[Rfam]
RNA: U2 spliceosomal RNA
Organism: Sinocyclocheilus grahami
RNA sequence: UUAUUUUCUAAAGAAAAAAUCUGUUCCUAUCAGUUUAAUAUCUGAUAUGUCCCCUAGCUGGAGCUGGAGCUGGAGCUGGAGCUGGAGCCGGGGCUUGCUCUGCCCAUUCCACGCAUCGGUCUGGUAUUGCAGUAUCUCCAGAAAUGGUGUGCUUCUC
Number, nucleotide and partner (000 for none) at each position: 001u012002u000003a000004u000005u000006u000007u000008c000009u000010a000011a000012a001013g000014a000015a000016a000017a000018a000019a000020u000021c000022u000023g000024u000025u000026c000027c000028u047029a046030u045031c044032a043033g042034u000035u000036u000037a000038a000039u000040a000041u000042c033043u032044g031045a030046u029047a028048u000049g065050u000051c063052c000053c061054c060055u000056a000057g000058c000059u000060g054061g053062a000063g051064c000065u049066g000067g000068a000069g000070c000071u000072g000073g000074a000075g000076c000077u000078g110079g109080a108081g107082c000083u000084g104085g103086a000087g000088c000089c000090g101091g100092g099093g098094c000095u000096u000097g000098c093099u092100c091101u090102g000103c085104c084105c000106a000107u081108u080109c079110c078111a000112c000113g150114c149115a148116u147117c146118g145119g000120u142121c141122u140123g139124g138125u000126a000127u000128u000129g000130c000131a000132g000133u000134a000135u000136c000137u000138c124139c123140a122141g121142a120143a000144a000145u118146g117147g116148u115149g114150u113151g000152c000153u000154u000155c000156u000157c000